The family of this 419-nucleotide RNA from Lolliginicoccus lacisalsi is "Bacterial RNase P class A".
It is annotated as a ribozyme.
Rfam links the family to the GO terms ribonuclease P activity, dimeric ribonuclease P complex and tRNA processing.
[Rfam]
RNA sequence: CGAGUCAGCUGGGCGAUCGCGUCGGGAAGGACUGCCACCAUGAUGGUGGUGUGCUUCCUGCCGAGGAAAGUCCGGACUCCGCAGAGCAGGACGGUUGCUAACGGCAACCCGGGGAGACCCGCGGGAAAGUGCCACAGAAAACAGACCGCCGCCCGGCCGUGGCUGGGCUGGCAAGGGUGAAACGGUGCGGUAAGAGCGCACCAGCACCCUGGGUGACCAGGGUGGCUUGGUAAACCCCGUCCGGAGCAAGGCCAAAGGCCGCAUCCUGGUGGUGCGGCUGCACGAACGCUCGAGGGCUGCUCGCCCGAGUUCGUGGGUGGGCUGCUCGAGGUACCCGGCAACGGUGUGCCCAGAUGGAUGAUCGCCGCCCCUGCCCGCGUGGCGGGGCACAGAAUCCGGCUUACAGGCUGGCUCGUCCG
Numbered sequence: 001c002g003a004g005u006c007a008g009c010u011g012g013g014c015g016a017u018c019g020c021g022u023c024g025g026g027a028a029g030g031a032c033u034g035c036c037a038c039c040a041u042g043a044u045g046g047u048g049g050u051g052u053g054c055u056u057c058c059u060g061c062c063g064a065g066g067a068a069a070g071u072c073c074g075g076a077c078u079c080c081g082c083a084g085a086g087c088a089g090g091a092c093g094g095u096u097g098c099u100a101a102c103g104g105c106a107a108c109c110c111g112g113g114g115a116g117a118c119c120c121g122c123g124g125g126a127a128a129g130u131g132c133c134a135c136a137g138a139a140a141a142c143a144g145a146c147c148g149c150c151g152c153c154c155g156g157c158c159g160u161g162g163c164u165g166g167g168c169u170g171g172c173a174a175g176g177g178u179g180a181a182a183c184g185g186u187g188c189g190g191u192a193a194g195a196g197c198g199c200a201c202c203a204g205c206a207c208c209c210u211g212g213g214u215g216a217c218c219a220g221g222g223u224g225g226c227u228u229g230g231u232a233a234a235c236c237c238c239g240u241c242c243g244g245a246g247c248a249a250g251g252c253c254a255a256a257g258g259c260c261g262c263a264u265c266c267u268g269g270u271g272g273u274g275c276g277g278c279u280g281c282a283c284g285a286a287c288g289c290u291c292g293a294g295g296g297c298u299g300c301u302c303g304c305c306c307g308a309g310u311u312c313g314u315g316g317g318u319g320g321g322c323u324g325c326u327c328g329a330g331g332u333a334c335c336c337g338g339c340a341a342c343g344g345u346g347u348g349c350c351c352a353g354a355u356g357g358a359u360g361a362u363c364g365c366c367g368c369c370c371c372u373g374c375c376c377g378c379g380u381g382g383c384g385g386g387g388c389a390c391a392g393a394a395u396c397c398g399g400c401u402u403a404c405a406g407g408c409u410g411g412c413u414c415g416u417c418c419g
Stems, first nucleotide, its partner, number of pairs: 001415010011404001012366007020063002023060006068402003072399005077246004084302004089242005094108005109123001110121004124237002129235002131231003146176002148172003152167006184202006204226001205224008250323004282314006294306004330349001335344003